[Rfam]
RNA sequence: UGCUUAUAGAGAAAGACGGAGGGAUUAGACCCUGCGAAGUCUUGGCAACCUGUGCUUACAAGGUGCCACAUUCUACUUGAGAGCCAACUGGCUCCCGGGAAAGAUAAGCG
Number, nucleotide and partner (000 for none) at each position: 001u110002g109003c108004u107005u106006a105007u104008a000009g000010a000011g000012a000013a043014a042015g041016a040017c039018g000019g000020a000021g032022g031023g030024a000025u000026u075027a074028g073029a072030c023031c022032c021033u000034g000035c000036g000037a000038a000039g017040u016041c015042u014043u013044g067045g066046c065047a064048a000049c063050c062051u060052g059053u058054g000055c000056u000057u000058a053059c052060a051061a000062g050063g049064u047065g046066c045067c044068a000069c000070a000071u102072u029073c028074u027075a026076c099077u098078u097079g096080a000081g094082a093083g092084c091085c090086a000087a000088c000089u000090g085091g084092c083093u082094c081095c000096c079097g078098g077099g076100a000101a000102a071103g000104a007105u006106a005107a004108g003109c002110g001
Record summary
The family of this 110-nucleotide RNA from Mucilaginibacter gotjawali is "SAM riboswitch aptamer (S box leader)". Taxonomically the source falls in Mucilaginibacter (Bacteria, Pseudomonadati, Bacteroidota, Sphingobacteriales). It scores 65 bits against the family's covariance model.